[Rfam]
RNA sequence: ACUGCUUUACUUUCAAUCUUCCCUCAUUGAGGUUGGCCCGAUAAGCUCUUAAUACGUUUCAUGCUUAUCGGGCUUUUUAUU
Numbered sequence: 001a002c003u004g005c006u007u008u009a010c011u012u013u014c015a016a017u018c019u020u021c022c023c024u025c026a027u028u029g030a031g032g033u034u035g036g037c038c039c040g041a042u043a044a045g046c047u048c049u050u051a052a053u054a055c056g057u058u059u060c061a062u063g064c065u066u067a068u069c070g071g072g073c074u075u076u077u078u079a080u081u
Base pairs, nucleotide, nucleotide: 035074036073037072038071039070040069041068042067043066044065045064046063
RNA: RybB RNA
Organism: Leminorella richardii